[Rfam]
RNA sequence: GCCGGCCCCUCACGUGGCGGUACCUCUCCGAACUCCCCCAGGGCAGGAAUGCAGCAAGGGUAGGUGAGCUCUUCCGGGUGCGUGGGGGGUCCUUGCG
Numbered sequence: 001g002c003c004g005g006c007c008c009c010u011c012a013c014g015u016g017g018c019g020g021u022a023c024c025u026c027u028c029c030g031a032a033c034u035c036c037c038c039c040a041g042g043g044c045a046g047g048a049a050u051g052c053a054g055c056a057a058g059g060g061u062a063g064g065u066g067a068g069c070u071c072u073u074c075c076g077g078g079u080g081c082g083u084g085g086g087g088g089g090u091c092c093u094u095g096c097g
Stems, first nucleotide, its partner, number of pairs: 004091011015078001018076003022072001024068003028064002035060003043052003